[Rfam]
RNA: Purine riboswitch aptamer
RNA sequence: UAAUUGUAUUUUUGCCUUGCAGAUUUAAUUGUUAGAAAAUGGCUAACGAGUUUCUACCGCCAACCAAAAGUGGCGACAAUCCGCAAAUGUAUUCUUUUC
Numbered sequence: 001u002a003a004u005u006g007u008a009u010u011u012u013u014g015c016c017u018u019g020c021a022g023a024u025u026u027a028a029u030u031g032u033u034a035g036a037a038a039a040u041g042g043c044u045a046a047c048g049a050g051u052u053u054c055u056a057c058c059g060c061c062a063a064c065c066a067a068a069a070g071u072g073g074c075g076a077c078a079a080u081c082c083g084c085a086a087a088u089g090u091a092u093u094c095u096u097u098u099c
Base pairs, nucleotide, nucleotide: 018085019084020083022081023080024079025078029049030048031047032046033045034044035043058075059074060073061072062071